[Rfam]
RNA sequence: CCCCGUUGGUAAGCACUCGAGCGGCAGGGGAUUUUAAAUACCCACUCCUGCGGCACUAGUACUUAGGAACGGGG
Dot-bracket structure: (((((((..((((.(((.(....(((((((..............)))))))....).))).))))..)))))))
Numbered sequence: 001c002c003c004c005g006u007u008g009g010u011a012a013g014c015a016c017u018c019g020a021g022c023g024g025c026a027g028g029g030g031a032u033u034u035u036a037a038a039u040a041c042c043c044a045c046u047c048c049u050g051c052g053g054c055a056c057u058a059g060u061a062c063u064u065a066g067g068a069a070c071g072g073g074g
Stems, first nucleotide, its partner, number of pairs: 001074007010065004015060003019056001024051007